[Rfam]
RNA sequence: UGUCUCCUCCAUGUCUCCUCCUGAUAUGGAUUUAAGCCCGCCAAGCGCGGGCUUUUUUUU
Numbered sequence: 001u002g003u004c005u006c007c008u009c010c011a012u013g014u015c016u017c018c019u020c021c022u023g024a025u026a027u028g029g030a031u032u033u034a035a036g037c038c039c040g041c042c043a044a045g046c047g048c049g050g051g052c053u054u055u056u057u058u059u060u
Base pairs, nucleotide, nucleotide: 008030009029010028011027012026013025014024015023035053036052037051038050039049040048041047
RNA: Betaproteobacteria toxic small RNA
Organism: Pandoraea thiooxydans